Shown here is a 42-nucleotide sequence from Neobacillus piezotolerans, a member of the family "Ribosomal protein L19 leader". The literature on the family includes a 1994 paper in Prog Nucleic Acid Res Mol Biol by Zengel and Lindahl, "Diverse mechanisms for regulating ribosomal protein synthesis in Escherichia coli". Rfam links the family to the GO term regulation of gene expression. Rfam's curators write: This family is a putative r-protein leader autoregulatory structure found in B. subtilis and other low-GC Gram-positive bacteria. Lineage of the source: Bacteria > Bacillati > Bacilli > Caryophanales > Neobacillus. It is annotated as a cis-regulatory leader. It scores 45 bits against the family's covariance model.

Nucleotides: 042
Stems, first nucleotide, its partner, number of pairs: 003040007013032002016028002
Number, partner (000 for none) and nucleotide at each position: 001000a002000c003040g004039a005038u006037g007036u008035u009034c010000c011000g012000c013032u014031g015000c016028a017027u018000a019000g020000g021000c022000a023000a024000g025000g026000g027017a028016u029000u030000g031014c032013a033000a034009g035008a036007g037006c038005a039004u040003c041000u042000g